[Rfam]
RNA sequence: AUCUUAUCAAGAGUGGUGGAGGGACAGGCCCUAUGAAGCCCAGCAACCAAACCUUAUAGAAGGUUCAGGUGCUAAUUCCUACAAAACCGAUUGGUUUUGAAAGAUAAGAG
Numbered sequence: 001a002u003c004u005u006a007u008c009a010a011g012a013g014u015g016g017u018g019g020a021g022g023g024a025c026a027g028g029c030c031c032u033a034u035g036a037a038g039c040c041c042a043g044c045a046a047c048c049a050a051a052c053c054u055u056a057u058a059g060a061a062g063g064u065u066c067a068g069g070u071g072c073u074a075a076u077u078c079c080u081a082c083a084a085a086a087c088c089g090a091u092u093g094g095u096u097u098u099g100a101a102a103g104a105u106a107a108g109a110g
Stems, first nucleotide, its partner, number of pairs: 002109007013041001015040003021031003026080003042073004047069002050065004077102001082099006
Shown here is a 110-nucleotide RNA from Heyndrickxia ginsengihumi, a member of the family "SAM riboswitch aptamer (S box leader)". The organism belongs to Heyndrickxia, within Bacteria. The family's consensus secondary structure is taken from published work.